A member of the RNA family "Small nucleolar RNA snoR53Y" from Centaurea solstitialis, 77 nucleotides long.
NCBI's taxonomy places the organism under Eukaryota, Gunneridae, Pentapetalae, Carduoideae, Centaurea.
The base pairs follow the family's consensus structure, which was predicted with WAR.
The match comes from Rfam's covariance-model search (58 bits).

Nucleotides: 077
Base pairs, nucleotide, nucleotide: 001076002075003074004073005072
Number, partner (000 for none) and nucleotide at each position: 001076g002075u003074u004073c005072c006000c007000a008000a009000u010000g011000a012000u013000g014000u015000u016000u017000a018000a019000a020000u021000u022000u023000g024000a025000c026000c027000a028000u029000g030000c031000u032000a033000a034000u035000u036000c037000u038000g039000a040000a041000a042000u043000u044000g045000a046000u047000g048000a049000c050000a051000c052000u053000g054000u055000u056000u057000u058000c059000a060000g061000u062000c063000a064000u065000u066000u067000c068000u069000g070000a071000g072005g073004g074003a075002a076001c077000a